[Rfam]
RNA sequence: UUUGAUUUGUACACCUAGAUCUGUACAACACUUUUAUUGUACAGAUGUAAGUGUACGUUGUGUAUUUUUAUAUACAUUUGUACACUAAAAAUGUUGUACAGAUCUAAGUGUACAAAUCAAA
Numbered sequence: 001u002u003u004g005a006u007u008u009g010u011a012c013a014c015c016u017a018g019a020u021c022u023g024u025a026c027a028a029c030a031c032u033u034u035u036a037u038u039g040u041a042c043a044g045a046u047g048u049a050a051g052u053g054u055a056c057g058u059u060g061u062g063u064a065u066u067u068u069u070a071u072a073u074a075c076a077u078u079u080g081u082a083c084a085c086u087a088a089a090a091a092u093g094u095u096g097u098a099c100a101g102a103u104c105u106a107a108g109u110g111u112a113c114a115a116a117u118c119a120a121a
Stems, first nucleotide, its partner, number of pairs: 001121014016106015032090005038084009048070003053065004
RNA: mir-5014 microRNA precursor family